[Rfam]
RNA sequence: GAAGCAGGACGCAAUUACAGUGCUCAAUUUUGUGGGAGUACUGCCAUUACCCUGCUGAGAGCAUCCCUCUACUGCGGAGACAUUAUUACUGUCAUUUCGCAUAUGACAUGUAAAACCUCUGUUGUGGAGACAUUU
Numbered sequence: 001g002a003a004g005c006a007g008g009a010c011g012c013a014a015u016u017a018c019a020g021u022g023c024u025c026a027a028u029u030u031u032g033u034g035g036g037a038g039u040a041c042u043g044c045c046a047u048u049a050c051c052c053u054g055c056u057g058a059g060a061g062c063a064u065c066c067c068u069c070u071a072c073u074g075c076g077g078a079g080a081c082a083u084u085a086u087u088a089c090u091g092u093c094a095u096u097u098c099g100c101a102u103a104u105g106a107c108a109u110g111u112a113a114a115a116c117c118u119c120u121g122u123u124g125u126g127g128a129g130a131c132a133u134u135u
Stems, first nucleotide, its partner, number of pairs: 003056006018043008067129006074122004086113004090108006097101001
RNA: Small nucleolar RNA SNORA69